[Rfam]
RNA sequence: UAGCCCAUCAUUUUUGUGGAAUGCAGUUAAUUCUUUUGAAAUUGCAUAGUCACAAAAGUGAUGGGCUA
Numbered sequence: 001u002a003g004c005c006c007a008u009c010a011u012u013u014u015u016g017u018g019g020a021a022u023g024c025a026g027u028u029a030a031u032u033c034u035u036u037u038g039a040a041a042u043u044g045c046a047u048a049g050u051c052a053c054a055a056a057a058g059u060g061a062u063g064g065g066c067u068a
Stems, first nucleotide, its partner, number of pairs: 002067005008061012022046007
Annotation: The family of this 68-nucleotide RNA sequence from Trichuris suis is "mir-153 microRNA precursor family". The family has 63 seed sequences and 1,565 matches in Rfam 15.1. A reference for the family is Chen et al. (2005), "The developmental miRNA profiles of zebrafish as determined by small RNA cloning", Genes Dev. The family's consensus secondary structure was predicted with RNAalifold. Its family is annotated with miRNA-mediated post-transcriptional gene silencing and RISC complex in the Gene Ontology.